[Rfam]
RNA sequence: GCAUGGGUUUGGAUUUAUGGCAGUCUCUUCCCCAUGGGCCUCUCGUUGUGUCCCAUGCCAGAGCAAACUGUACCCCUGAACCAUUGCCUGGCUACUUACCCAUAGGCUGCAGCACUGAAACGUGUUGCAAAGUG
Numbered sequence: 001g002c003a004u005g006g007g008u009u010u011g012g013a014u015u016u017a018u019g020g021c022a023g024u025c026u027c028u029u030c031c032c033c034a035u036g037g038g039c040c041u042c043u044c045g046u047u048g049u050g051u052c053c054c055a056u057g058c059c060a061g062a063g064c065a066a067a068c069u070g071u072a073c074c075c076c077u078g079a080a081c082c083a084u085u086g087c088c089u090g091g092c093u094a095c096u097u098a099c100c101c102a103u104a105g106g107c108u109g110c111a112g113c114a115c116u117g118a119a120a121c122g123u124g125u126u127g128c129a130a131a132g133u134g
Stems, first nucleotide, its partner, number of pairs: 001058004005053004015048001017046004022041002025037002071127002074124001076122001082117002087112001088109001090107001092105002

Rfam assigns this 134-nucleotide RNA from Chrysochloris asiatica to the family "Small nucleolar RNA SNORA42/SNORA80 family". Pairs were carried over by alignment from the consensus structure, which was predicted with RNAalifold. For this family Rfam cites "A computational screen for mammalian pseudouridylation guide H/ACA RNAs" (Schattner et al., RNA, 2006). Rfam describes the family as follows. The members of this family belong to the H/ACA class of snoRNAs that guide the sites of modification of uridines to pseudouridines. Human ACA42 (SNORA42) was cloned from HeLa cells by immunoprecipitation with anti-GAR1 antibody. Its is predicted to guide the pseudouridylation of residues U109 and U572 of 18S rRNA. ACA42 shares the same host gene with ACA26, ACA46, ACA50.